Notes:
The record is a 92-nucleotide RNA from Populus deltoides, which matches "MIR474 microRNA precursor family" in Rfam. The organism belongs to Populus, within Eukaryota. The family's consensus secondary structure was predicted with WAR. For this family Rfam cites "Novel and mechanical stress-responsive MicroRNAs in Populus trichocarpa that are absent from Arabidopsis" (Lu et al., Plant Cell, 2005).
RNA sequence: GCAAAAGCUGCUAGGUCAUGCUUGGUAGCUAGACACAAUAGCAUUGGGUUAAUUAGGUCUGGCUACCAAGCAUGACUCAGCAGCUUUUGAAA
Dot-bracket structure: .(.(((((((((.((((((((((((((((..(((.((((...)))).)))...........)))))))))))))))).))))))))).)...
Annotation: The match comes from Rfam's covariance-model search (51 bits). Rfam links the family to the GO terms miRNA-mediated post-transcriptional gene silencing and RISC complex.